[Rfam]
RNA sequence: ACAACAACAACAAAAAAUGCGACACCCAAUAAAAACAACAUGUAACGGCUCUGACAUAACAAGAACAACACGGCAGAGGCGUAGCAAGCAGAUUUUUUUGGAGUAGACACGCUUUUCAGGGGUUCGCCCCGCGGUCUGGCACAGAACAAUAAAACUACCUUAAGGUAGCGGCAGUCAGCAUCGGAUCCUCAGGAUGAAAGCAGGUCAGCGCUCAAAAAAAUACGUUUGCUCUUGACCCCGGUUGGGGGUCACCCGCAACACCAAGGCAGGCCUACAAAAACAACAAAAGGCCAGCCUCAAUAAUAAGAAAAGAGCAGGCAACAACGCUUUGAGGGGAGCUUCGGCUCCCCUCAGUGCUUCCUGCCCUCCUCCUCCUGCUGUUUCU
Numbered sequence: 001a002c003a004a005c006a007a008c009a010a011c012a013a014a015a016a017a018u019g020c021g022a023c024a025c026c027c028a029a030u031a032a033a034a035a036c037a038a039c040a041u042g043u044a045a046c047g048g049c050u051c052u053g054a055c056a057u058a059a060c061a062a063g064a065a066c067a068a069c070a071c072g073g074c075a076g077a078g079g080c081g082u083a084g085c086a087a088g089c090a091g092a093u094u095u096u097u098u099u100g101g102a103g104u105a106g107a108c109a110c111g112c113u114u115u116u117c118a119g120g121g122g123u124u125c126g127c128c129c130c131g132c133g134g135u136c137u138g139g140c141a142c143a144g145a146a147c148a149a150u151a152a153a154a155c156u157a158c159c160u161u162a163a164g165g166u167a168g169c170g171g172c173a174g175u176c177a178g179c180a181u182c183g184g185a186u187c188c189u190c191a192g193g194a195u196g197a198a199a200g201c202a203g204g205u206c207a208g209c210g211c212u213c214a215a216a217a218a219a220a221u222a223c224g225u226u227u228g229c230u231c232u233u234g235a236c237c238c239c240g241g242u243u244g245g246g247g248g249u250c251a252c253c254c255g256c257a258a259c260a261c262c263a264a265g266g267c268a269g270g271c272c273u274a275c276a277a278a279a280a281c282a283a284c285a286a287a288a289g290g291c292c293a294g295c296c297u298c299a300a301u302a303a304u305a306a307g308a309a310a311a312g313a314g315c316a317g318g319c320a321a322c323a324a325c326g327c328u329u330u331g332a333g334g335g336g337a338g339c340u341u342c343g344g345c346u347c348c349c350c351u352c353a354g355u356g357c358u359u360c361c362u363g364c365c366c367u368c369c370u371c372c373u374c375c376u377g378c379u380g381u382u383u384c385u
Stems, first nucleotide, its partner, number of pairs: 046081002049078004096217005110210003132183004136178003155168005235249005263367001265365004269292004312357001314355002331352009

A member of the RNA family "Pseudomonas sRNA CrcZ" from Pseudomonas putida, 385 nucleotides long. Rfam links the family to the GO term carbon catabolite repression of transcription. The source organism's lineage runs through Bacteria, Pseudomonadales, Pseudomonadaceae, Pseudomonas and Pseudomonas putida. The family has 19 seed sequences and 127 matches in Rfam 15.1.